[Rfam]
RNA sequence: ACUGCAAGCUUGAGGCCAUAGAAGAAGUAUUUACAGCAUGGCCUGCCAGAUUCUAAUGAAUCUGUAAAUUCUGCU
Dot-bracket structure: .............((((..[[.[[[[((.........))))))...(((((((....)))))))....]]]].]]

Shown here is a 75-nucleotide RNA from Alligator mississippiensis, a member of the family "Mammalian CPEB3 ribozyme". Rfam links the family to the GO term RNA nuclease activity. The family's consensus secondary structure is taken from published work.